[Rfam]
RNA sequence: AAGAAAGUGACUGCUGCCCCGCACAGGGGCAACGCCAAUAAACCGACACGAAAGCAAGUUUCACUCAAACCCUCGAAGACUCGACGUGCGCAGCAAAUCCCGUCCGUCCCACGGCGAGUUCAUC
Numbered sequence: 001a002a003g004a005a006a007g008u009g010a011c012u013g014c015u016g017c018c019c020c021g022c023a024c025a026g027g028g029g030c031a032a033c034g035c036c037a038a039u040a041a042a043c044c045g046a047c048a049c050g051a052a053a054g055c056a057a058g059u060u061u062c063a064c065u066c067a068a069a070c071c072c073u074c075g076a077a078g079a080c081u082c083g084a085c086g087u088g089c090g091c092a093g094c095a096a097a098u099c100c101c102g103u104c105c106g107u108c109c110c111a112c113g114g115c116g117a118g119u120u121c122a123u124c
Base pairs, nucleotide, nucleotide: 011093012092013091014090015031016030017029018028019027020026058085059084060083112116
RNA: Burkholderia sRNA Bp1_Cand684_SIPHT
Organism: Caballeronia novacaledonica